[Rfam]
RNA: mir-2807 microRNA precursor family
RNA sequence: UUAACUCGUAUUAGUAUGGAGUUGGAACGUUUGCCUGCGUUUGCCGCUAGGGGCGCUGUUGCAACUACAUACAAAUUUAAAUUA
Numbered sequence: 001u002u003a004a005c006u007c008g009u010a011u012u013a014g015u016a017u018g019g020a021g022u023u024g025g026a027a028c029g030u031u032u033g034c035c036u037g038c039g040u041u042u043g044c045c046g047c048u049a050g051g052g053g054c055g056c057u058g059u060u061g062c063a064a065c066u067a068c069a070u071a072c073a074a075a076u077u078u079a080a081a082u083u084a
Stems, first nucleotide, its partner, number of pairs: 008078001010076003014072003018068001020066005026060004034052003039047002